[Rfam]
RNA sequence: GAAAGACGCGCAUUUGUUAUCAUCAUCCCUUAUUACCAGAGAUGUAUAUUUGGCCACAUUGAUGUGGCCUUUU
Numbered sequence: 001g002a003a004a005g006a007c008g009c010g011c012a013u014u015u016g017u018u019a020u021c022a023u024c025a026u027c028c029c030u031u032a033u034u035a036c037c038a039g040a041g042a043u044g045u046a047u048a049u050u051u052g053g054c055c056a057c058a059u060u061g062a063u064g065u066g067g068c069c070u071u072u073u
Stems, first nucleotide, its partner, number of pairs: 024044004029039002052069007
Dot-bracket structure: .......................((((.((.......)).)))).......(((((((....)))))))....
RNA: MicA sRNA